[Rfam]
RNA: MIR168 microRNA precursor family
Organism: Cynara cardunculus
Nucleotides: 172
Base pairs, nucleotide, nucleotide: 014159015158018155019154020153021152024149025148026147027146028145029144030143031142032141033140035138036137037136038135039134041132042131043130044129
Number, partner (000 for none) and nucleotide at each position: 001000g002000u003000u004000a005000c006000g007000g008000c009000g010000g011000u012000u013000u014159u015158c016000u017000g018155a019154u020153u021152c022000g023000c024149u025148u026147g027146g028145u029144g030143c031142a032141g033140g034000u035138c036137g037136g038135g039134a040000a041132c042131g043130g044129u045000a046000u047000c048000g049000c050000c051000g052000g053000c054000g055000g056000g057000g058000u059000c060000g061000u062000g063000u064000u065000u066000g067000c068000c069000u070000u071000u072000c073000u074000g075000c076000g077000c078000c079000u080000c081000a082000c083000g084000g085000a086000c087000a088000c089000a090000u091000a092000a093000a094000g095000c096000g097000g098000a099000a100000g101000u102000u103000u104000g105000u106000g107000a108000g109000g110000g111000a112000u113000a114000a115000u116000c117000g118000u119000u120000u121000c122000g123000g124000u125000g126000a127000a128000c129044a130043c131042c132041g133000g134039u135038c136037c137036c138035g139000c140033c141032u142031u143030g144029c145028a146027u147026c148025a149024a150000c151000u152021g153020a154019a155018u156000c157000g158015g159014a160000a161000a162000c163000u164000g165000c166000c167000g168000u169000g170000a171000a172000u